Rfam assigns this 97-nucleotide sequence from Aegilops tauschii to the family "MIR5070 microRNA precursor family". Rfam 15.1 lists 266 matches to the family in 8 species. Its family is annotated with RISC complex and miRNA-mediated post-transcriptional gene silencing in the Gene Ontology.
[Rfam]
RNA sequence: AAGGGUACCUUCUGACCCUUCUUAGUUCAACCAAAUAAACUAAUUUUUCCUAAUUUAGUUCAUUCAGUUGAACUAAGUAGGGUCGGAGGGUACCCUG
Numbered sequence: 001a002a003g004g005g006u007a008c009c010u011u012c013u014g015a016c017c018c019u020u021c022u023u024a025g026u027u028c029a030a031c032c033a034a035a036u037a038a039a040c041u042a043a044u045u046u047u048u049c050c051u052a053a054u055u056u057a058g059u060u061c062a063u064u065c066a067g068u069u070g071a072a073c074u075a076a077g078u079a080g081g082g083u084c085g086g087a088g089g090g091u092a093c094c095c096u097g
Stems, first nucleotide, its partner, number of pairs: 002096018021077011034064003038060006